[Rfam]
RNA: Flavo-1 RNA
Organism: Flavobacterium macacae
Nucleotides: 081
Stems, first nucleotide, its partner, number of pairs: 009073003013069002018064002023059001025057002029054005035048004
Number, partner (000 for none) and nucleotide at each position: 001000a002000c003000a004000u005000a006000g007000c008000c009073c010072c011071g012000a013069u014068u015000g016000c017000a018064g019063g020000g021000g022000a023059a024000a025057u026056c027000c028000u029054u030053u031052u032051u033050u034000a035048g036047u037046g038045a039000u040000u041000u042000u043000c044000u045038u046037c047036a048035c049000a050033a051032a052031a053030a054029a055000a056026g057025a058000g059023u060000g061000u062000a063019c064018c065000g066000g067000a068014a069013a070000a071011c072010g073009g074000g075000a076000a077000u078000u079000a080000c081000c